Rfam assigns this 67-nucleotide RNA from Leptolyngbya sp. FACHB-321 to the family "Glutamine riboswitch aptamer (glnA leader)". The base pairs follow the family's consensus structure, which is taken from published work.
RNA sequence: AACGUUCAUCUAGCCGCUAAUUAAAUUCGGCAGACGGAAGUAGGGAGAAGUCCCGAAGGAACGCGCC
Numbered sequence: 001a002a003c004g005u006u007c008a009u010c011u012a013g014c015c016g017c018u019a020a021u022u023a024a025a026u027u028c029g030g031c032a033g034a035c036g037g038a039a040g041u042a043g044g045g046a047g048a049a050g051u052c053c054c055g056a057a058g059g060a061a062c063g064c065g066c067c
Stems, first nucleotide, its partner, number of pairs: 003063005009034003037064001043054003